[Rfam]
RNA sequence: CUGGGAUGAUGCAAAUUAGCCAAAUCAUACGUCGAUGUGCUCCACGAGGCAAUUUUUUCGAAGCGCUUUGCCAGUCUCUUCUAUGGACUUGGCAAGGCUUUAGAAGCGUAUCUAUCUGAUGAUACAAUAGAGUAGGGUUCCUUGCUGACCGGA
Numbered sequence: 001c002u003g004g005g006a007u008g009a010u011g012c013a014a015a016u017u018a019g020c021c022a023a024a025u026c027a028u029a030c031g032u033c034g035a036u037g038u039g040c041u042c043c044a045c046g047a048g049g050c051a052a053u054u055u056u057u058u059c060g061a062a063g064c065g066c067u068u069u070g071c072c073a074g075u076c077u078c079u080u081c082u083a084u085g086g087a088c089u090u091g092g093c094a095a096g097g098c099u100u101u102a103g104a105a106g107c108g109u110a111u112c113u114a115u116c117u118g119a120u121g122a123u124a125c126a127a128u129a130g131a132g133u134a135g136g137g138u139u140c141c142u143u144g145c146u147g148a149c150c151g152g153a
Stems, first nucleotide, its partner, number of pairs: 001152004
RNA: small nucleolar RNA snoR127
Organism: Pyrus ussuriensis x Pyrus communis